Shown here is an 88-nucleotide sequence from Danaus plexippus, a member of the family "mir-317 microRNA precursor family". Taxonomically the source falls in Danaus plexippus (Eukaryota, Heteroneura, Ditrysia, Danaus). Gene Ontology terms of the family: RISC complex and miRNA-mediated post-transcriptional gene silencing. The family has 25 seed sequences and 153 matches in Rfam 15.1. For this family Rfam cites "Systematic discovery and characterization of fly microRNAs using 12 Drosophila genomes" (Stark et al., Genome Res, 2007). A search with the family's covariance model found it, with a score of 64 bits.
[Rfam]
RNA sequence: GCUAUCGAACGACCGGGUGCCACGCUGUGCUCCCUCGGGAUAUCUGGUGAGUGAACACAGCUGGUGGUAUCUCAGUUGUUCCCUAGUU
Numbered sequence: 001g002c003u004a005u006c007g008a009a010c011g012a013c014c015g016g017g018u019g020c021c022a023c024g025c026u027g028u029g030c031u032c033c034c035u036c037g038g039g040a041u042a043u044c045u046g047g048u049g050a051g052u053g054a055a056c057a058c059a060g061c062u063g064g065u066g067g068u069a070u071c072u073c074a075g076u077u078g079u080u081c082c083c084u085a086g087u088u
Base pairs, nucleotide, nucleotide: 008079011076015073016071017070019068020067022065023064025060026059027058029056031054032053